[Rfam]
RNA: c-di-GMP-I riboswitch aptamer
Organism: Sulfurirhabdus autotrophica
RNA sequence: ACCUAAACAGGGCAAACCCAUCGAAAGGUGGGGACGCAAAGUUUCCGGUCUAAGGGAUGAUAAAAGUCCUACGAUAGCGGAAUUGCUAGG
Numbered sequence: 001a002c003c004u005a006a007a008c009a010g011g012g013c014a015a016a017c018c019c020a021u022c023g024a025a026a027g028g029u030g031g032g033g034a035c036g037c038a039a040a041g042u043u044u045c046c047g048g049u050c051u052a053a054g055g056g057a058u059g060a061u062a063a064a065a066g067u068c069c070u071a072c073g074a075u076a077g078c079g080g081a082a083u084u085g086c087u088a089g090g
Stems, first nucleotide, its partner, number of pairs: 012037002017032006040084004045080003048075003055069004